Shown here is a 131-nucleotide RNA sequence from Megalops atlanticus, a member of the family "Small Cajal body specific RNA 8". About the family: scaRNAs are a specific class of small nuclear RNAs which localise to the Cajal bodies and guide the modification of RNA polymerase II transcribed spliceosomal RNAs U1, U2, U4, U5 and U12.
[Rfam]
RNA sequence: UGGGAGGGUGAUACUCAGGCAGGGGUCAGUUUUGUCCUGCCUGUCACAAAUCCUCCCUAGAGCAUCCUUGCCUUUUGAUGACCGGGGCGAAUUGAGAGAAAUCGCAACGGACAGAUACGGGGCAGACACCU
Numbered sequence: 001u002g003g004g005a006g007g008g009u010g011a012u013a014c015u016c017a018g019g020c021a022g023g024g025g026u027c028a029g030u031u032u033u034g035u036c037c038u039g040c041c042u043g044u045c046a047c048a049a050a051u052c053c054u055c056c057c058u059a060g061a062g063c064a065u066c067c068u069u070g071c072c073u074u075u076u077g078a079u080g081a082c083c084g085g086g087g088c089g090a091a092u093u094g095a096g097a098g099a100a101a102u103c104g105c106a107a108c109g110g111a112c113a114g115a116u117a118c119g120g121g122g123c124a125g126a127c128a129c130c131u
Base pairs, nucleotide, nucleotide: 002057003056004055005054006053007052016043017042018041022037023036024035068125069124070123071122072121073120074119082110083109084108087105088104089103090102

The literature on the family includes a 2001 paper in EMBO J by Huttenhofer et al., "RNomics: an experimental approach that identifies 201 candidates for novel, small, non-messenger RNAs in mouse". Its family is annotated with RNA processing, nucleolus and Cajal body in the Gene Ontology. A search with the family's covariance model found it, with a score of 125 bits.